[Rfam]
RNA sequence: UAUUUAGGAACAUCGGCUAAGAGCGCCGCGUCCUGCGGCAACGCCGAUGGACCCGCUUCCGUGCGGG
Numbered sequence: 001u002a003u004u005u006a007g008g009a010a011c012a013u014c015g016g017c018u019a020a021g022a023g024c025g026c027c028g029c030g031u032c033c034u035g036c037g038g039c040a041a042c043g044c045c046g047a048u049g050g051a052c053c054c055g056c057u058u059c060c061g062u063g064c065g066g067g
Base pairs, nucleotide, nucleotide: 011049012048013047014046015045016044017043025039026038027037028036029035052067053066054065055064056063
Shown here is a 67-nucleotide RNA sequence from Lederbergia citrea, a member of the family "Bacillaceae-1 RNA". The organism belongs to Lederbergia, within Bacteria. By type it is a small RNA.